[Rfam]
RNA: c-di-GMP-II-GAG riboswitch aptamer
RNA sequence: UAGUGGGGUAGAGGCUAUAGAACUUCGUCCUGUAUGUGGGCGACCUGGGGCGAAGGAAGCCAAUGAUGCGACCGUCUACCGUUUAA
Numbered sequence: 001u002a003g004u005g006g007g008g009u010a011g012a013g014g015c016u017a018u019a020g021a022a023c024u025u026c027g028u029c030c031u032g033u034a035u036g037u038g039g040g041c042g043a044c045c046u047g048g049g050g051c052g053a054a055g056g057a058a059g060c061c062a063a064u065g066a067u068g069c070g071a072c073c074g075u076c077u078a079c080c081g082u083u084u085a086a
Stems, first nucleotide, its partner, number of pairs: 001086001003084001005082001007080005013061003023055008038073002040069003044065001